[Rfam]
RNA: chrB-a RNA
RNA sequence: GGCACGGGGUUUUCCGCGAGCGCCCCGUGAGGCGCCAGCCGGAAGUUCGCAUGUUUCCCGAUUGAGAGGACACAUGCCAUG
Numbered sequence: 001g002g003c004a005c006g007g008g009g010u011u012u013u014c015c016g017c018g019a020g021c022g023c024c025c026c027g028u029g030a031g032g033c034g035c036c037a038g039c040c041g042g043a044a045g046u047u048c049g050c051a052u053g054u055u056u057c058c059c060g061a062u063u064g065a066g067a068g069g070a071c072a073c074a075u076g077c078c079a080u081g
Stems, first nucleotide, its partner, number of pairs: 005027006049077006